[Rfam]
RNA: mir-2040 microRNA precursor family
Organism: Rhipicephalus sanguineus
RNA sequence: GACGAGGACAGAGACCAAGAAUGCGACGACACGAGCGCUGUGUCGCGCUCGUGUCGUCGCAUUCUUGGUCUCUGUCCUCGUC
Number, nucleotide and partner (000 for none) at each position: 001g082002a081003c080004g079005a000006g000007g000008a075009c074010a000011g072012a071013g070014a069015c068016c067017a066018a065019g064020a000021a062022u061023g060024c000025g058026a057027c056028g055029a054030c000031a052032c051033g050034a049035g048036c047037g046038c000039u000040g000041u000042g000043u000044c000045g000046c037047g036048c035049u034050c033051g032052u031053g000054u029055c028056g027057u026058c025059g000060c023061a022062u021063u000064c019065u018066u017067g016068g015069u014070c013071u012072c011073u000074g009075u008076c000077c000078u000079c004080g003081u002082c001